[Rfam]
RNA sequence: UUGCUUGUGAGAUGACUUUAGGAGCUCCAAACAGGCAGUUACUUGCCUAAAUUCGCUCCUGGGAAGGUCUGAGAAAUGGCCCUCGUAUCCUUCAGGAAGGGAACAUCCAAGAGGAUGUGGAAUCGUACUGGAAGCAAGGUACUUUGUCAUGAUUGUGGACAAGAAAUCCAUAGGAUGGAUCCUAUACAAUCAUGACAAAUUUGAAACACGGUUCCGGCCAGCUACUUUAGUGCGAUAGUCACAACCACUCAAUUCAGACUACUCCAUGAGCAA
Numbered sequence: 001u002u003g004c005u006u007g008u009g010a011g012a013u014g015a016c017u018u019u020a021g022g023a024g025c026u027c028c029a030a031a032c033a034g035g036c037a038g039u040u041a042c043u044u045g046c047c048u049a050a051a052u053u054c055g056c057u058c059c060u061g062g063g064a065a066g067g068u069c070u071g072a073g074a075a076a077u078g079g080c081c082c083u084c085g086u087a088u089c090c091u092u093c094a095g096g097a098a099g100g101g102a103a104c105a106u107c108c109a110a111g112a113g114g115a116u117g118u119g120g121a122a123u124c125g126u127a128c129u130g131g132a133a134g135c136a137a138g139g140u141a142c143u144u145u146g147u148c149a150u151g152a153u154u155g156u157g158g159a160c161a162a163g164a165a166a167u168c169c170a171u172a173g174g175a176u177g178g179a180u181c182c183u184a185u186a187c188a189a190u191c192a193u194g195a196c197a198a199a200u201u202u203g204a205a206a207c208a209c210g211g212u213u214c215c216g217g218c219c220a221g222c223u224a225c226u227u228u229a230g231u232g233c234g235a236u237a238g239u240c241a242c243a244a245c246c247a248c249u250c251a252a253u254u255c256a257g258a259c260u261a262c263u264c265c266a267u268g269a270g271c272a273a
Stems, first nucleotide, its partner, number of pairs: 001273004007267003017238002020060005033048006069257005078219004088102005103118006119215007139200001
The record is a 273-nucleotide sequence from Panagrolaimus sp. JU765, which matches "Nuclear RNase P" in Rfam.
Rfam classes the family as a ribozyme.
A search with the family's covariance model found it, with a score of 112 bits.
For this family Rfam cites "Structural implications of novel diversity in eucaryal RNase P RNA" (Marquez et al., RNA, 2005).
Taxonomically the source falls in Panagrolaimus (Eukaryota, Metazoa, Chromadorea, Panagrolaimidae).